TPP riboswitch aptamer (THI element): a 100-nucleotide sequence from Rothia aerolata. Gene Ontology term of the family: thiamine pyrophosphate binding. The base pairs follow the family's consensus structure, which is taken from published work.

RNA sequence: AUGAAACGACAGGGGAGCACCUAGGUGCUGAGAGUGCGCAAGCAGACCCUCGAACCUGAUCCGGCUAAUACCGGCGUGAGGAAGUCGAGUUCUCGUGAAC
Numbered sequence: 001a002u003g004a005a006a007c008g009a010c011a012g013g014g015g016a017g018c019a020c021c022u023a024g025g026u027g028c029u030g031a032g033a034g035u036g037c038g039c040a041a042g043c044a045g046a047c048c049c050u051c052g053a054a055c056c057u058g059a060u061c062c063g064g065c066u067a068a069u070a071c072c073g074g075c076g077u078g079a080g081g082a083a084g085u086c087g088a089g090u091u092c093u094c095g096u097g098a099a100c
Base pairs, nucleotide, nucleotide: 007087008086009085010084011050012049013048014047017028018027019026020025035044036043037042055081056080057079061074062073063072064071